[Rfam]
RNA sequence: CUGGCCGCAGCAGCAGCGCUGCCCUCCGUGUAUUUGAUGAGCUGAUUUGACACUCCAUGCAGCAGGGUGUCAGUUUGUCAAAUAUACAAAGGGCGGCGUUUGCCAAG
Numbered sequence: 001c002u003g004g005c006c007g008c009a010g011c012a013g014c015a016g017c018g019c020u021g022c023c024c025u026c027c028g029u030g031u032a033u034u035u036g037a038u039g040a041g042c043u044g045a046u047u048u049g050a051c052a053c054u055c056c057a058u059g060c061a062g063c064a065g066g067g068u069g070u071c072a073g074u075u076u077g078u079c080a081a082a083u084a085u086a087c088a089a090a091g092g093g094c095g096g097c098g099u100u101u102g103c104c105a106a107g
Stems, first nucleotide, its partner, number of pairs: 022093004028087001030085014049071004054066002
RNA: mir-223 microRNA precursor family
Organism: Phrynocephalus forsythii